Record summary:
Shown here is an 84-nucleotide RNA sequence from Tripterygium wilfordii, a member of the family "Small nucleolar RNA SNORD25". It is annotated as a C/D-box small nucleolar RNA. Lineage of the source: Eukaryota > Viridiplantae > Magnoliopsida > rosids > Tripterygium. Pairs were carried over by alignment from the consensus structure, which was predicted with PFOLD. Its family is annotated with nucleolus and RNA processing in the Gene Ontology.
RNA sequence: AUAAACGGGGAUGAGCCUACAUACCUGUCAUGAUUUGCGGAUAUGAUCGCAACUCAUUUAGAACAUCUAAGGGACUGAGUUUAC
Dot-bracket structure: .(((((........................................................................))))).